Background:
tRNA: a 72-nucleotide RNA from Streptomyces sp. SID5785. The base pairs follow the family's consensus structure, which is taken from published work. The organism belongs to Streptomyces, within Bacteria. The match comes from Rfam's covariance-model search (59 bits).
RNA sequence: GGCCGUGUGCCCGAGUGGCUUAGGGAUUCGCCUGCAAAGCGAAGCACACCGGUUCGAUUCCGGUCACGGCCU
Numbered sequence: 001g002g003c004c005g006u007g008u009g010c011c012c013g014a015g016u017g018g019c020u021u022a023g024g025g026a027u028u029c030g031c032c033u034g035c036a037a038a039g040c041g042a043a044g045c046a047c048a049c050c051g052g053u054u055c056g057a058u059u060c061c062g063g064u065c066a067c068g069g070c071c072u
Base pairs, nucleotide, nucleotide: 001071002070003069004068005067006066007065010025011024012023027043028042029041030040031039048064049063050062051061052060